Shown here is a 70-nucleotide RNA from Chrysemys picta, a member of the family "Small nucleolar RNA SNORD34". The organism belongs to Chrysemys picta, within Eukaryota. The family has 14 seed sequences and 1,319 matches in Rfam 15.1. The match comes from Rfam's covariance-model search (41 bits). Rfam's curators write: snoRNA U34 is found in intron 5 of the ribosomal protein L13a gene in humans.
[Rfam]
RNA sequence: CGUGUCCAUGAUGUUCCAUCUACCUACAUUGUUUGAUGCUGGAUGAGAAAAAUGUUGACCCUGAGACACG
Numbered sequence: 001c002g003u004g005u006c007c008a009u010g011a012u013g014u015u016c017c018a019u020c021u022a023c024c025u026a027c028a029u030u031g032u033u034u035g036a037u038g039c040u041g042g043a044u045g046a047g048a049a050a051a052a053u054g055u056u057g058a059c060c061c062u063g064a065g066a067c068a069c070g
Stems, first nucleotide, its partner, number of pairs: 001070001003068004